[Rfam]
RNA sequence: CUGCUUUAAGCCCCGUUUCGUGAGCUGGCUCACUUCAAACGGCGCGCAAGGCUGAGUAUCAUCCCCUGACGCGGACCCUCAUCGUUUUGACGGUGAGGGUUUUUCUUUGGA
Numbered sequence: 001c002u003g004c005u006u007u008a009a010g011c012c013c014c015g016u017u018u019c020g021u022g023a024g025c026u027g028g029c030u031c032a033c034u035u036c037a038a039a040c041g042g043c044g045c046g047c048a049a050g051g052c053u054g055a056g057u058a059u060c061a062u063c064c065c066c067u068g069a070c071g072c073g074g075a076c077c078c079u080c081a082u083c084g085u086u087u088u089g090a091c092g093g094u095g096a097g098g099g100u101u102u103u104u105c106u107u108u109g110g111a
Base pairs, nucleotide, nucleotide: 020033021032022031023030073102074101075100076099077098078097079096080095081094082093083092084091
Enterobacteria rnk leader: a 111-nucleotide RNA from Cronobacter sakazakii. The family's consensus secondary structure is taken from published work. Lineage of the source: Bacteria > Gammaproteobacteria > Enterobacterales > Enterobacteriaceae > Cronobacter. Gene Ontology term of the family: regulation of gene expression. A reference for the family is Naville and Gautheret (2010), "Premature terminator analysis sheds light on a hidden world of bacterial transcriptional attenuation", Genome Biol.